RNA sequence: CAUGGGGCUGCGCCCCAUGCUGGUAUAGGCCGCGCCUUUGGCGCU
Numbered sequence: 001c002a003u004g005g006g007g008c009u010g011c012g013c014c015c016c017a018u019g020c021u022g023g024u025a026u027a028g029g030c031c032g033c034g035c036c037u038u039u040g041g042c043g044c045u
Stems, first nucleotide, its partner, number of pairs: 001019008032044005
The family of this 45-nucleotide sequence from Edaphobacter dinghuensis is "Acido-Lenti-1 RNA".
Lineage of the source: Bacteria > Pseudomonadati > Terriglobia > Acidobacteriaceae > Edaphobacter.
A search with the family's covariance model found it, with a score of 41 bits.